[Rfam]
RNA: Plastid-rps12 3UTR RNA
Organism: Gossypium arboreum
RNA sequence: GGUUUCUAUUGGCGCAAAUCCAAUCUUGGAAUUUAAGAGGAUAAAAAAUUUCCAUUGGUGGCAAAUGCUCAUCCAUUAAGCAGGGAAAAUCCUAU
Numbered sequence: 001g002g003u004u005u006c007u008a009u010u011g012g013c014g015c016a017a018a019u020c021c022a023a024u025c026u027u028g029g030a031a032u033u034u035a036a037g038a039g040g041a042u043a044a045a046a047a048a049u050u051u052c053c054a055u056u057g058g059u060g061g062c063a064a065a066u067g068c069u070c071a072u073c074c075a076u077u078a079a080g081c082a083g084g085g086a087a088a089a090u091c092c093u094a095u
Base pairs, nucleotide, nucleotide: 009023010022011021012020051085052084053083054076055075057073058072059071060070061069